RNA sequence: UCCUCCCGACCGAUGCACCAUGAUUGAUGUUGGAUUUAUCAUGGUGUCUUAGUCAGGGGUAG
Numbered sequence: 001u002c003c004u005c006c007c008g009a010c011c012g013a014u015g016c017a018c019c020a021u022g023a024u025u026g027a028u029g030u031u032g033g034a035u036u037u038a039u040c041a042u043g044g045u046g047u048c049u050u051a052g053u054c055a056g057g058g059g060u061a062g
Stems, first nucleotide, its partner, number of pairs: 003059004008054003012050002015047010
Record summary:
A member of the RNA family "mir-7911 microRNA precursor family" from Panagrellus redivivus, 62 nucleotides long. Rfam links the family to the GO terms miRNA-mediated post-transcriptional gene silencing and RISC complex. Pairs were carried over by alignment from the consensus structure, which was predicted with RNAalifold.